[Rfam]
The family of this 83-nucleotide RNA from Tychaedon coryphoeus is "Small nucleolar RNA SNORD121A". A search with the family's covariance model found it, with a score of 50 bits. The family's consensus secondary structure was predicted with WAR. A reference for the family is Yang et al. (2006), "snoSeeker: an advanced computational package for screening of guide and orphan snoRNA genes in the human genome", Nucleic Acids Res.

RNA sequence: GUUCAAAAUAUAGCGAUGUCUUUUCCAAGCACAUAUCUAAUUGUUCUGUGUGGAAAAUGACUGUUGCUAUGUGAUUUUUGGAU
Number, nucleotide and partner (000 for none) at each position: 001g083002u082003u081004c080005a079006a078007a000008a076009u000010a000011u073012a000013g000014c000015g000016a000017u000018g000019u000020c000021u000022u000023u000024u000025c000026c000027a000028a000029g000030c000031a000032c000033a000034u000035a000036u000037c000038u000039a000040a000041u000042u000043g000044u000045u000046c000047u000048g000049u000050g000051u000052g000053g000054a000055a000056a000057a000058u000059g000060a000061c000062u000063g000064u000065u000066g000067c000068u000069a000070u000071g000072u000073g011074a000075u000076u008077u000078u006079u005080g004081g003082a002083u001
Lineage of the source: Eukaryota > Bilateria > Tetrapoda > Archosauria > Tychaedon. Rfam 15.1 lists 881 matches to the family in 444 species.